The record is a 96-nucleotide RNA sequence from Chthoniobacter flavus, which matches "Group II catalytic intron D1-D4-1" in Rfam. The sequence is in the family's curated seed alignment.

Nucleotides: 096
Base pairs, nucleotide, nucleotide: 001027002026004024005023007021008020009019010018041048042047050096051095052094059089060088068083069082070081
Number, partner (000 for none) and nucleotide at each position: 001027c002026u003000u004024a005023c006000c007021c008020g009019g010018g011000g012000a013000g014000a015000u016000c017000u018010c019009c020008u021007g022000u023005g024004u025000g026002a027001g028000a029000g030000c031000a032000c033000g034000g035000g036000a037000g038000a039000a040000g041048u042047c043000a044000g045000c046000a047042g048041a049000g050096g051095c052094c053000g054000u055000a056000g057000u058000a059089g060088u061000g062000a063000a064000g065000a066000g067000g068083c069082c070081c071000g072000g073000c074000g075000a076000a077000a078000g079000u080000c081070g082069g083068g084000a085000a086000g087000a088060g089059c090000g091000a092000a093000g094052g095051g096050c
Description:
NCBI's taxonomy places the organism under Bacteria, Spartobacteria, Chthoniobacterales, Chthoniobacteraceae, Chthoniobacter flavus. From the family's description: Group II introns are found in rRNA, tRNA and mRNA of organelles in fungi, plants and protists, and also in mRNA in bacteria. Rfam links the family to the GO term Group II intron splicing.